[Rfam]
RNA sequence: UCAGUUCUAAUGUCAAAUGGUGGAGAGAUAUAUAUCUGGGACUCUCCACCAUUUGACAUUAGAACUGA
Numbered sequence: 001u002c003a004g005u006u007c008u009a010a011u012g013u014c015a016a017a018u019g020g021u022g023g024a025g026a027g028a029u030a031u032a033u034a035u036c037u038g039g040g041a042c043u044c045u046c047c048a049c050c051a052u053u054u055g056a057c058a059u060u061a062g063a064a065c066u067g068a
Stems, first nucleotide, its partner, number of pairs: 001068004005063001007062009017052006025046004
mir-29 microRNA precursor family: a 68-nucleotide sequence from Maylandia zebra. The match comes from Rfam's covariance-model search (49 bits). A reference for the family is Ambros (2001), "microRNAs: tiny regulators with great potential", Cell. Rfam links the family to the GO terms RISC complex and gene silencing by miRNA. Lineage of the source: Eukaryota > Ctenosquamata > Acanthomorphata > Cichlidae > Maylandia zebra complex. Rfam describes the family as follows. This family represents the microRNA (miRNA) precursors mir-29. Pairs were carried over by alignment from the consensus structure, which was predicted with PFOLD.